[Rfam]
RNA: Small nucleolar RNA SNORA55
RNA sequence: GCACUCCAGCAAACUCUGUCCAGCUGCUGCGGUGUUGGAUCAGGGUUAAUACGGUGCCAGAGUAACUCAGAGCGUAUCCAGAUGAGUCUCUGUCCAUCGGAGCUUGUCCCUACAACCUCUGAUACACAA
Numbered sequence: 001g002c003a004c005u006c007c008a009g010c011a012a013a014c015u016c017u018g019u020c021c022a023g024c025u026g027c028u029g030c031g032g033u034g035u036u037g038g039a040u041c042a043g044g045g046u047u048a049a050u051a052c053g054g055u056g057c058c059a060g061a062g063u064a065a066c067u068c069a070g071a072g073c074g075u076a077u078c079c080a081g082a083u084g085a086g087u088c089u090c091u092g093u094c095c096a097u098c099g100g101a102g103c104u105u106g107u108c109c110c111u112a113c114a115a116c117c118u119c120u121g122a123u124a125c126a127c128a129a
Base pairs, nucleotide, nucleotide: 001057002056003055004054005053012047013046014045015044016043017042018041020038021037067122068121069120070119071118072116081108082107083106084105085104086103087102094100095099